[Rfam]
Nucleotides: 094
Stems, first nucleotide, its partner, number of pairs: 010087005016081002020077002023074001025072010
Number, partner (000 for none) and nucleotide at each position: 001000c002000a003000u004000a005000u006000c007000a008000u009000a010087u011086g012085a013084c014083a015000a016081c017080g018000a019000u020077a021076g022000a023074g024000a025072g026071c027070a028069c029068g030067c031066u032065u033064g034063u035000a036000c037000a038000c039000a040000u041000c042000c043000a044000u045000g046000u047000c048000c049000u050000u051000g052000c053000a054000a055000g056000a057000a058000u059000g060000c061000c062000a063034a064033c065032g066031a067030g068029c069028g070027u071026g072025c073000u074023c075000u076021c077020u078000c079000u080017c081016g082000u083014u084013g085012u086011c087010a088000a089000u090000u091000g092000a093000u094000a